Rfam assigns this 69-nucleotide RNA sequence from Georgenia muralis to the family "Actino-pnp RNA".
RNA sequence: UCCGGUCCUCGGUAGUGGCCUCCGGAACCGGAACCCUCCGGCCUCCGUGGGCCUCGAUCGAAGGCCGUC
Dot-bracket structure: ..(((((.(((((...(((((.((((.(((((....)))))..)))).)))))...))))).)))))..
Numbered sequence: 001u002c003c004g005g006u007c008c009u010c011g012g013u014a015g016u017g018g019c020c021u022c023c024g025g026a027a028c029c030g031g032a033a034c035c036c037u038c039c040g041g042c043c044u045c046c047g048u049g050g051g052c053c054u055c056g057a058u059c060g061a062a063g064g065c066c067g068u069c
Stems, first nucleotide, its partner, number of pairs: 003067005009061005017053005023047004028041005
Annotation: NCBI's taxonomy places the organism under Bacteria, Bacillati, Actinomycetes, Allobogoriellaceae, Georgenia. The match comes from Rfam's covariance-model search (59 bits).